The record is a 181-nucleotide RNA from Megalops atlanticus, which matches "Small nucleolar RNA SNORA23" in Rfam. It is annotated as an H/ACA-box small nucleolar RNA. The organism belongs to Megalops, within Eukaryota. A search with the family's covariance model found it, with a score of 98 bits.
Nucleotides: 181
Stems, first nucleotide, its partner, number of pairs: 013091001015089001030082001033079001035077001036075004041070001043068002045065003050060001052058001107174003111170001120160006127154004132144003
Number, partner (000 for none) and nucleotide at each position: 001000g002000g003000a004000g005000a006000c007000c008000g009000g010000a011000g012000u013091g014000c015089g016000u017000g018000g019000u020000g021000a022000c023000u024000g025000u026000c027000u028000g029000c030082g031000u032000u033079u034000a035077g036075u037074g038073c039072c040000u041070c042000u043068g044067u045065c046064u047063g048000u049000c050060u051000a052058c053000a054000u055000c056000u057000u058052g059000c060050a061000g062000u063047c064046a065045g066000a067044a068043c069000g070041g071000u072039g073038g074037u075036g076000c077035u078000c079033a080000c081000c082030c083000c084000a085000c086000a087000c088000c089015u090000a091013c092000a093000g094000c095000c096000a097000c098000a099000g100000a101000u102000a103000c104000a105000c106000u107174g108173g109172a110000a111170a112000u113000c114000a115000u116000a117000g118000u119000a120160c121159u122158g123157g124156u125155c126000u127154a128153g129152u130151g131000a132144u133143g134142u135000c136000c137000u138000c139000u140000g141000a142134a143133c144132a145000g146000c147000a148000u149000a150000c151130c152129a153128c154127u155125g156124g157123c158122c159121a160120g161000c162000c163000u164000c165000c166000a167000a168000a169000c170111u171000c172109u173108c174107c175000c176000a177000c178000a179000a180000u181000c